[Rfam]
RNA sequence: AAUCCGUGGUGUAGACAGUCUCGCUGGAAGAACCUAAAUCUAAUCCACGCAUCUUUGAAGGACUCUCUAGCCUUCUGCGAGAAUGUGGAAAUUUUGUUCCGAAGUU
Numbered sequence: 001a002a003u004c005c006g007u008g009g010u011g012u013a014g015a016c017a018g019u020c021u022c023g024c025u026g027g028a029a030g031a032a033c034c035u036a037a038a039u040c041u042a043a044u045c046c047a048c049g050c051a052u053c054u055u056u057g058a059a060g061g062a063c064u065c066u067c068u069a070g071c072c073u074u075c076u077g078c079g080a081g082a083a084u085g086u087g088g089a090a091a092u093u094u095u096g097u098u099c100c101g102a103a104g105u106u
Stems, first nucleotide, its partner, number of pairs: 001106001003104001005101002057074002060071001
Rfam assigns this 106-nucleotide sequence from Brassica rapa to the family "Plant small nucleolar RNA R71". The family's RNA type in Rfam is C/D-box small nucleolar RNA. A search with the family's covariance model found it, with a score of 40 bits.